[Rfam]
RNA: mir-124 microRNA precursor family
RNA sequence: ACUUCCUCGCGUUCACUGUCGUCCCUUUAUGUGUUCAUAGUAGUCAUAAGGCACGCGGUGAAUGCCAAGAGGG
Dot-bracket structure: ..(((...((((((((.((....(((.((((.............)))))))...)).))))))))...)))..